[Rfam]
RNA sequence: GGUGGAAAAGGUGGAAAAAUUCGAUGCGUCCACGCUCAAUUAAAAAUUGAUAAGAGAUGAGGGAGAAAGCGUCGCCCUCUUUCCAAU
Number, nucleotide and partner (000 for none) at each position: 001g087002g000003u085004g084005g083006a082007a081008a080009a000010g000011g033012u032013g031014g030015a029016a000017a000018a000019a000020u000021u000022c000023g073024a072025u071026g070027c069028g000029u015030c014031c013032a012033c011034g000035c054036u050037c049038a048039a047040u000041u000042a000043a000044a000045a000046a000047u039048u038049g037050a036051u000052a000053a000054g035055a000056g000057a000058u000059g079060a078061g077062g076063g075064a000065g000066a000067a000068a000069g027070c026071g025072u024073c023074g000075c063076c062077c061078u060079c059080u008081u007082u006083c005084c004085a003086a000087u001
skipping-rope RNA: an 87-nucleotide RNA sequence. The family's RNA type in Rfam is small RNA. It is one of the family's seed sequences. The family's consensus secondary structure is taken from published work.